Shown here is a 298-nucleotide RNA, a member of the family "Metazoan signal recognition particle RNA".
RNA sequence: ACCGGGCGCCGUGGCGGGCGCCUGUGAGCCAGCUUCUUGGCGGUAGACGAGUGUGGAUGGAGUGAGAGGAGGAGUCCUGUGUGUGUCGGCGUCGGCGUCGACCGAGCGUCCGUGCCAAGCGCCGCGUCGCCAGGGUACAUCUGUCGGAAGACGGGUGCUCCCGGGCGCAUAAGGAGCGGUGGACGGUUCAGGCCCGAAAGGGAGCAGACAAAAGCUGCCGCGCGGUGCAGUGGCCGGACAGCGCUCGCGAGUCGACACGUGCACACAGCCUUCUCGACAUCUGCAGACCGCCAGUCGA
Numbered sequence: 001a002c003c004g005g006g007c008g009c010c011g012u013g014g015c016g017g018g019c020g021c022c023u024g025u026g027a028g029c030c031a032g033c034u035u036c037u038u039g040g041c042g043g044u045a046g047a048c049g050a051g052u053g054u055g056g057a058u059g060g061a062g063u064g065a066g067a068g069g070a071g072g073a074g075u076c077c078u079g080u081g082u083g084u085g086u087c088g089g090c091g092u093c094g095g096c097g098u099c100g101a102c103c104g105a106g107c108g109u110c111c112g113u114g115c116c117a118a119g120c121g122c123c124g125c126g127u128c129g130c131c132a133g134g135g136u137a138c139a140u141c142u143g144u145c146g147g148a149a150g151a152c153g154g155g156u157g158c159u160c161c162c163g164g165g166c167g168c169a170u171a172a173g174g175a176g177c178g179g180u181g182g183a184c185g186g187u188u189c190a191g192g193c194c195c196g197a198a199a200g201g202g203a204g205c206a207g208a209c210a211a212a213a214g215c216u217g218c219c220g221c222g223c224g225g226u227g228c229a230g231u232g233g234c235c236g237g238a239c240a241g242c243g244c245u246c247g248c249g250a251g252u253c254g255a256c257a258c259g260u261g262c263a264c265a266c267a268g269c270c271u272u273c274u275c276g277a278c279a280u281c282u283g284c285a286g287a288c289c290g291c292c293a294g295u296c297g298a
Stems, first nucleotide, its partner, number of pairs: 001044003004023007028041003046296003051291003058285002061282002066275007077268008087259002092255005098249001103247007110237002114234004119228009128167004133162003138157008168174001176218005186209003193202003
The family has 91 seed sequences and 383,523 matches in Rfam 15.1. The literature on the family includes a 2002 paper in Curr Opin Struct Biol by Wild et al., "Towards the structure of the mammalian signal recognition particle". The family is grouped with related families in Rfam's "SRP clan". Its family is annotated with signal recognition particle, endoplasmic reticulum targeting and SRP-dependent cotranslational protein targeting to membrane, signal sequence recognition in the Gene Ontology. The signal recognition particle (SRP) is a universally conserved ribonucleoprotein. It is involved in the co-translational targeting of proteins to membranes. A search with the family's covariance model found it, with a score of 227 bits.